The record is a 54-nucleotide RNA sequence from Dicentrarchus labrax, which matches "Editing element of GABA-3 exon 9" in Rfam. The literature on the family includes a 2007 paper in RNA by Ohlson et al., "Editing modifies the GABA(A) receptor subunit alpha3". By type it is a cis-regulatory element. The family has 52 seed sequences and 4,208 matches in Rfam 15.1.

RNA sequence: AAAGUUUCUUACGCCACGGCCAUGGAUUGGUUCAUCGCCGUUUGCUUUGCCUUU
Numbered sequence: 001a002a003a004g005u006u007u008c009u010u011a012c013g014c015c016a017c018g019g020c021c022a023u024g025g026a027u028u029g030g031u032u033c034a035u036c037g038c039c040g041u042u043u044g045c046u047u048u049g050c051c052u053u054u
Stems, first nucleotide, its partner, number of pairs: 001054003008049001011046001013045002016041005022035005